The family of this 140-nucleotide sequence from Acanthosepion pharaonis is "U4 spliceosomal RNA".
A search with the family's covariance model found it, with a score of 111 bits.
The base pairs follow the family's consensus structure, which is taken from published work.
U4 small nuclear RNA (U4 snRNA) is a component of the major U2-dependent spliceosome.
Taxonomically the source falls in Acanthosepion (Eukaryota, Bilateria, Spiralia, Sepiidae).
Rfam classes the family as a spliceosomal small nuclear RNA.
[Rfam]
RNA sequence: AGCUUUGCGCAGGUGCGGUACCGUAGCCAAUGAGGAUUUUCCGAGGCGCGGUUAUUGCUAGUUGAAAACUAUUACCAAUACCCCGCGACGGCGUCCCUUUUGUGGGUGCUAAUCGCAAUUUUUUCACAUCUCCACGGAGG
Numbered sequence: 001a002g003c004u005u006u007g008c009g010c011a012g013g014u015g016c017g018g019u020a021c022c023g024u025a026g027c028c029a030a031u032g033a034g035g036a037u038u039u040u041c042c043g044a045g046g047c048g049c050g051g052u053u054a055u056u057g058c059u060a061g062u063u064g065a066a067a068a069c070u071a072u073u074a075c076c077a078a079u080a081c082c083c084c085g086c087g088a089c090g091g092c093g094u095c096c097c098u099u100u101u102g103u104g105g106g107u108g109c110u111a112a113u114c115g116c117a118a119u120u121u122u123u124u125c126a127c128a129u130c131u132c133c134a135c136g137g138a139g140g
Stems, first nucleotide, its partner, number of pairs: 020052005026047003034042003085116003090110007129140004